[Rfam]
RNA sequence: UCCGUCGCGAGGUGGAAUCCGAAGGAAGCUGUAGGCAAACUCCUGGCCCGACGGCCAGGCACCGCAUAGGAGGCAGCCACCCCGGGGCGAGAGGGCCAUGGCACUCGAAGCCCAAUAGCUAUCCCGAAGAUGUGGCAGUAGAGGCAGUCGGUAGAUGGGGGAAGGUCGUGCGC
Numbered sequence: 001u002c003c004g005u006c007g008c009g010a011g012g013u014g015g016a017a018u019c020c021g022a023a024g025g026a027a028g029c030u031g032u033a034g035g036c037a038a039a040c041u042c043c044u045g046g047c048c049c050g051a052c053g054g055c056c057a058g059g060c061a062c063c064g065c066a067u068a069g070g071a072g073g074c075a076g077c078c079a080c081c082c083c084g085g086g087g088c089g090a091g092a093g094g095g096c097c098a099u100g101g102c103a104c105u106c107g108a109a110g111c112c113c114a115a116u117a118g119c120u121a122u123c124c125c126g127a128a129g130a131u132g133u134g135g136c137a138g139u140a141g142a143g144g145c146a147g148u149c150g151g152u153a154g155a156u157g158g159g160g161g162a163a164g165g166u167c168g169u170g171c172g173c
Base pairs, nucleotide, nucleotide: 001016002015003014004013005012006011028173029172035166036165040160041159042158043157046152047151048150050148062147064145065144067142073139074138077135078134079133080132083129085113086112087111088110091106092105093104
Record summary: Group II catalytic intron D1-D4-3: a 173-nucleotide sequence from Halomonas stenophila. Its family is annotated with Group II intron splicing in the Gene Ontology. Taxonomically the source falls in Halomonas (Bacteria, Pseudomonadati, Gammaproteobacteria, Halomonadaceae). It scores 96 bits against the family's covariance model. The pairing is the family consensus, mapped onto this sequence. From the family's description: Group II introns are found in rRNA, tRNA and mRNA of organelles in fungi, plants and protists, and also in mRNA in bacteria.